[Rfam]
RNA sequence: UCCCGAUGGUGAGUUGCCACCAUGUAGGGCAUUCUUGCCCUAGUUUGGGUGUCAGUGAGUUUAACAAUACUUCUAACAUGGAGAUCUGAGGGAC
Numbered sequence: 001u002c003c004c005g006a007u008g009g010u011g012a013g014u015u016g017c018c019a020c021c022a023u024g025u026a027g028g029g030c031a032u033u034c035u036u037g038c039c040c041u042a043g044u045u046u047g048g049g050u051g052u053c054a055g056u057g058a059g060u061u062u063a064a065c066a067a068u069a070c071u072u073c074u075a076a077c078a079u080g081g082a083g084a085u086c087u088g089a090g091g092g093a094c
Stems, first nucleotide, its partner, number of pairs: 001093004025042005

Small nucleolar RNA U6-53/MBII-28: a 94-nucleotide RNA sequence from Dipodomys ordii. Pairs were carried over by alignment from the consensus structure. Its family is annotated with RNA processing and nucleolus in the Gene Ontology. It scores 78 bits against the family's covariance model.